[Rfam]
RNA sequence: AAUAUUAUAGGGAAUGAAGUACUCCCUUUAAACGCGAAAGCUGAUGACUUCUACUUAAAU
Numbered sequence: 001a002a003u004a005u006u007a008u009a010g011g012g013a014a015u016g017a018a019g020u021a022c023u024c025c026c027u028u029u030a031a032a033c034g035c036g037a038a039a040g041c042u043g044a045u046g047a048c049u050u051c052u053a054c055u056u057a058a059a060u
Stems, first nucleotide, its partner, number of pairs: 010026004016051005034041002